[Rfam]
RNA sequence: AAACCAGGUGAUGAGAUUGGAUUAAAUUUCUUACGAUGGUCAUCUGUGACUCACUAGUGUCUAUAUUGAUGCAAUGAUGCUCCAGUAUUUCUGAUGGUU
Number, nucleotide and partner (000 for none) at each position: 001a099002a098003a000004c096005c000006a000007g000008g000009u000010g000011a000012u000013g000014a000015g000016a000017u000018u000019g000020g000021a000022u000023u000024a000025a000026a000027u000028u000029u000030c000031u000032u000033a000034c000035g000036a000037u000038g000039g000040u000041c000042a000043u000044c000045u000046g000047u000048g061049a060050c059051u000052c000053a000054c000055u000056a000057g000058u000059g050060u049061c048062u000063a000064u000065a000066u000067u000068g000069a000070u000071g000072c000073a000074a000075u000076g000077a000078u000079g000080c000081u000082c000083c000084a000085g000086u000087a000088u000089u000090u000091c000092u000093g000094a000095u000096g004097g000098u002099u001
RNA: Small nucleolar RNA Z161/Z228